Shown here is a 589-nucleotide part of an RNA from Gasterosteus aculeatus, a member of the family "Eukaryotic small subunit ribosomal RNA".
[Rfam]
RNA sequence: UGUCUCAAAGAUUAAGCCAUGCAAGUGUAAGUACACACGGACUGUACAGUGAAACUGCGAAUGGCUCAUUAAAUCAGUUAUGGUCCCUUUGAUCGCUCUCACGUUACUUGGAUAACUGUGGCAAUUCUAGAGCUAAUACAUGCAAACGAGCGCUGACCCUCCGGGGGAUGCGUGCAUUUAUCAGAUCCAAAACCCAUGCGGGGAGCCCCUCCGGGGGUGCCCCCGGACCCCUUUGGUGACUCUGGAUAACCUCGAGCCGAUCGCUGGCCCCCCGCGGCGGCGACGUCUCUUUCGAAUGUCUGCCCUAUCAACUUUCGAUGGUACUUUCCGUGCCUACCAUGGUGACAACGGGUAACGGGGAAUCAGGGUUCGAUUCCGGAGAGGGAGCCUGAGAAACGGCUACCACAUCCAAGGAAGGCAGCAGGCGCGCAAAUUACCCACUCCCGACUCGGGGAGGUAGUGACGAAAAAUAACAAUACAGGACUCUUUCGAGGCCCUGUAAUUGGAAUGGGUGCACUUUAAAUCCUUUGACGAGGAUCCAUUGGAGGGCAAGUCUGGUGCCAGCAGCCGCGGUAAUUCCAGCUCCAAU
Numbered sequence: 001u002g003u004c005u006c007a008a009a010g011a012u013u014a015a016g017c018c019a020u021g022c023a024a025g026u027g028u029a030a031g032u033a034c035a036c037a038c039g040g041a042c043u044g045u046a047c048a049g050u051g052a053a054a055c056u057g058c059g060a061a062u063g064g065c066u067c068a069u070u071a072a073a074u075c076a077g078u079u080a081u082g083g084u085c086c087c088u089u090u091g092a093u094c095g096c097u098c099u100c101a102c103g104u105u106a107c108u109u110g111g112a113u114a115a116c117u118g119u120g121g122c123a124a125u126u127c128u129a130g131a132g133c134u135a136a137u138a139c140a141u142g143c144a145a146a147c148g149a150g151c152g153c154u155g156a157c158c159c160u161c162c163g164g165g166g167g168a169u170g171c172g173u174g175c176a177u178u179u180a181u182c183a184g185a186u187c188c189a190a191a192a193c194c195c196a197u198g199c200g201g202g203g204a205g206c207c208c209c210u211c212c213g214g215g216g217g218u219g220c221c222c223c224c225g226g227a228c229c230c231c232u233u234u235g236g237u238g239a240c241u242c243u244g245g246a247u248a249a250c251c252u253c254g255a256g257c258c259g260a261u262c263g264c265u266g267g268c269c270c271c272c273c274g275c276g277g278c279g280g281c282g283a284c285g286u287c288u289c290u291u292u293c294g295a296a297u298g299u300c301u302g303c304c305c306u307a308u309c310a311a312c313u314u315u316c317g318a319u320g321g322u323a324c325u326u327u328c329c330g331u332g333c334c335u336a337c338c339a340u341g342g343u344g345a346c347a348a349c350g351g352g353u354a355a356c357g358g359g360g361a362a363u364c365a366g367g368g369u370u371c372g373a374u375u376c377c378g379g380a381g382a383g384g385g386a387g388c389c390u391g392a393g394a395a396a397c398g399g400c401u402a403c404c405a406c407a408u409c410c411a412a413g414g415a416a417g418g419c420a421g422c423a424g425g426c427g428c429g430c431a432a433a434u435u436a437c438c439c440a441c442u443c444c445c446g447a448c449u450c451g452g453g454g455a456g457g458u459a460g461u462g463a464c465g466a467a468a469a470a471u472a473a474c475a476a477u478a479c480a481g482g483a484c485u486c487u488u489u490c491g492a493g494g495c496c497c498u499g500u501a502a503u504u505g506g507a508a509u510g511g512g513u514g515c516a517c518u519u520u521a522a523a524u525c526c527u528u529u530g531a532c533g534a535g536g537a538u539c540c541a542u543u544g545g546a547g548g549g550c551a552a553g554u555c556u557g558g559u560g561c562c563a564g565c566a567g568c569c570g571c572g573g574u575a576a577u578u579c580c581a582g583c584u585c586c587a588a589u
Base pairs, nucleotide, nucleotide: 003468005466006465009461010428016426017425018424020423021422022421025058026057030056031055032054037050038049065381066380067379075302076301077300080297081296084295085294091289092288107142109140110139116132117131119129120128121127150173151172152171153170157166158165178249179248180247181246182245192237193236194235221226261283262282263281264280267278268277269276304352305351306350311343312342313341318340319339320338321337322336323335356378357377358376359375360371361370362369363368383404384403386401387400388399406417408415409414434459436458437457438456442454443453444452445451446450474505475504476503477501478500479499480498481497482496484493485492486491512532513531514529516528542588543587544586545585546584547583555582556581557580558579564571565570
Record summary:
Pairs were carried over by alignment from the consensus structure, which is taken from published work.